[Rfam]
RNA: Bacterial RNase P class A
Organism: Sinomonas atrocyanea
Nucleotides: 399
Stems, first nucleotide, its partner, number of pairs: 001395010011384001012340007020051002023048004028043005057381002060379005065243004072276004077239005082096005097111001098109004112234002117232002119228003134173002136169009181199002184196003201223001202221008247297004256288006268280004304323008
Number, partner (000 for none) and nucleotide at each position: 001395c002394a003393g004392g005391u006390c007389g008388g009387c010386c011384g012340g013339g014338c015337g016336a017335c018334c019000g020051c021050g022000g023048g024047g025046c026045g027000g028043u029042c030041u031040g032039g033000c034000g035000u036000a037000a038000g039032c040031c041030a042029g043028g044000g045026c046025g047024c048023c049000g050021c051020g052000a053000g054000g055000a056000a057381a058380g059000u060379c061378c062377g063376g064375g065243c066242u067241c068240c069000g070000c071000a072276g073275g074274g075273c076000a077239g078238g079237g080236u081235g082096g083095u084094g085093g086092g087000u088000a089000a090000c091000g092086c093085c094084c095083a096082c097111u098109c099108g100107g101106g102000g103000a104000a105000a106101c107100c108099c109098g110000c111097a112234g113233g114000c115000c116000a117232g118231u119228g120227c121226c122000a123000c124000a125000g126000a127000g128000a129000a130000c131000a132000g133000a134173c135172c136169g137168c138167c139166g140165c141164g142163g143162a144161c145000a146000g147000g148000c149000g150000c151000c152000u153000g154000g155000c156000g157000c158000c159000g160000c161144g162143u163142c164141c165140g166139c167138g168137g169136u170000a171000a172135g173134g174000g175000u176000g177000a178000a179000a180000c181199g182198g183000c184196g185195g186194u187000g188000u189000a190000a191000g192000a193000g194186a195185c196184c197000a198182c199181c200000a201223g202221c203220u204219c205218c206217c207216c208215g209214g210000g211000c212000g213000a214209c215208c216207g217206g218205g219204g220203a221202g222000g223201c224000u225000c226121g227120g228119u229000a230000a231118a232117c233113c234112c235081c236080a237079c238078c239077c240068g241067g242066a243065g244000c245000a246000a247297g248296g249295c250294c251000a252000g253000a254000c255000a256288g257287g258286g259285c260284g261283c262000g263000a264000u265000c266000g267000a268280g269279g270278g271277c272000u273075g274074c275073c276072c277271g278270c279269c280268c281000g282000a283261g284260c285259g286258c287257c288256c289000g290000g291000g292000u293000a294250g295249g296248c297247c298000g299000c300000u301000c302000g303000a304323g305322g306321c307320c308319g309318c310317c311316g312000g313000c314000a315000a316311c317310g318309g319308c320307g321306g322305u323304c324000c325000u326000a327000g328000a329000u330000g331000g332000a333000u334018g335017g336016u337015c338014g339013c340012c341000u342000c343000c344000c345000g346000c347000g348000c349000c350000g351000g352000g353000g354000c355000a356000a357000c358000c359000c360000g361000g362000c363000g364000c365000g366000g367000a368000g369000a370000c371000a372000g373000a374000a375064c376063c377062c378061g379060g380058c381057u382000c383000a384011c385000a386010g387009g388008c389007c390006g391005g392004c393003c394002u395001g396000u397000c398000c399000u